[Rfam]
RNA sequence: CGGCCCGGGCCGUGUGGGGCGCUCCCGUGCGCUCUAACCCUAAUGGUGACCGCGCCUCCCCACACCCGCCCGCUGUUUUAGUCGCUGGCUUUCAGCGGGCUGGGGGAGCGGCCCGGGGAGGGGAGUGGGGGGCUCAGGGAGAGGGGUCUGACAUUUGAAAAAAAAAAAAACGUCAGCGAGGGAGCUCCUCACGCCGGCCCGGCCUGGCCUGGGCGCCCCCUGCGCCCCUCAGCCCGGGGCGCUCCCGGCGCGGCGCUGAGGCAGCGGCCGGCCGGCUCACCGCCACUGGCACCGCGAAGGGCUCGUCUCUGUCGGCCUCGGCGGCGCGGCCGGGAGCCCAGGGGGCUCAGCCCGUCCCGGGCACCGGGGGGGCCCCAGCAGAGCAACACGGGAGCGGCGCCGCAGGGAGGACCAGCCGCGACCCCCUCAGCCAUGGGGCACGCGGUCGGCGCCGCCCCGACACCC
Numbered sequence: 001c002g003g004c005c006c007g008g009g010c011c012g013u014g015u016g017g018g019g020c021g022c023u024c025c026c027g028u029g030c031g032c033u034c035u036a037a038c039c040c041u042a043a044u045g046g047u048g049a050c051c052g053c054g055c056c057u058c059c060c061c062a063c064a065c066c067c068g069c070c071c072g073c074u075g076u077u078u079u080a081g082u083c084g085c086u087g088g089c090u091u092u093c094a095g096c097g098g099g100c101u102g103g104g105g106g107a108g109c110g111g112c113c114c115g116g117g118g119a120g121g122g123g124a125g126u127g128g129g130g131g132g133c134u135c136a137g138g139g140a141g142a143g144g145g146g147u148c149u150g151a152c153a154u155u156u157g158a159a160a161a162a163a164a165a166a167a168a169a170a171c172g173u174c175a176g177c178g179a180g181g182g183a184g185c186u187c188c189u190c191a192c193g194c195c196g197g198c199c200c201g202g203c204c205u206g207g208c209c210u211g212g213g214c215g216c217c218c219c220c221u222g223c224g225c226c227c228c229u230c231a232g233c234c235c236g237g238g239g240c241g242c243u244c245c246c247g248g249c250g251c252g253g254c255g256c257u258g259a260g261g262c263a264g265c266g267g268c269c270g271g272c273c274g275g276c277u278c279a280c281c282g283c284c285a286c287u288g289g290c291a292c293c294g295c296g297a298a299g300g301g302c303u304c305g306u307c308u309c310u311g312u313c314g315g316c317c318u319c320g321g322c323g324g325c326g327c328g329g330c331c332g333g334g335a336g337c338c339c340a341g342g343g344g345g346c347u348c349a350g351c352c353c354g355u356c357c358c359g360g361g362c363a364c365c366g367g368g369g370g371g372g373c374c375c376c377a378g379c380a381g382a383g384c385a386a387c388a389c390g391g392g393a394g395c396g397g398c399g400c401c402g403c404a405g406g407g408a409g410g411a412c413c414a415g416c417c418g419c420g421a422c423c424c425c426c427u428c429a430g431c432c433a434u435g436g437g438g439c440a441c442g443c444g445g446u447c448g449g450c451g452c453c454g455c456c457c458c459g460a461c462a463c464c465c
Stems, first nucleotide, its partner, number of pairs: 005202008014192006021185005057106005068100008084177006090170003208378001211375004221349002224346006243335007250325002253322002264295004270290001272288001274284003298310004392457001394455008416445005423438004

This 465-nucleotide sequence from Xiphorhynchus elegans belongs to the Rfam family "Vertebrate telomerase RNA". About the family: Telomerase is a ribonucleoprotein reverse transcriptase that synthesises telomeric DNA. Telomerase RNAs differ greatly in sequence and structure between vertebrates, ciliates and yeasts, but they share a 5' pseudoknot structure close to the template sequence. Vertebrate telomerase RNAs have a 3' H/ACA snoRNA-like domain. The base pairs follow the family's consensus structure, which is taken from published work. Its Rfam clan is "Telomerase clan". The match comes from Rfam's covariance-model search (108 bits).